[Rfam]
RNA sequence: ACUGUUUGAGGUGGUAAAUUUCGUUGCGACCACACGCCGAUGGUAUGACAGGGGAAACCCGAGAGAUGCGGGGGAAAGCGACGCCCGCCAAAUUGU
Numbered sequence: 001a002c003u004g005u006u007u008g009a010g011g012u013g014g015u016a017a018a019u020u021u022c023g024u025u026g027c028g029a030c031c032a033c034a035c036g037c038c039g040a041u042g043g044u045a046u047g048a049c050a051g052g053g054g055a056a057a058c059c060c061g062a063g064a065g066a067u068g069c070g071g072g073g074g075a076a077a078g079c080g081a082c083g084c085c086c087g088c089c090a091a092a093u094u095g096u
Stems, first nucleotide, its partner, number of pairs: 001096002004093005011033005023082005035063001036044003068088005

skipping-rope RNA: a 96-nucleotide RNA sequence. Rfam's curators put it in the seed alignment. The base pairs follow the family's consensus structure, which is taken from published work.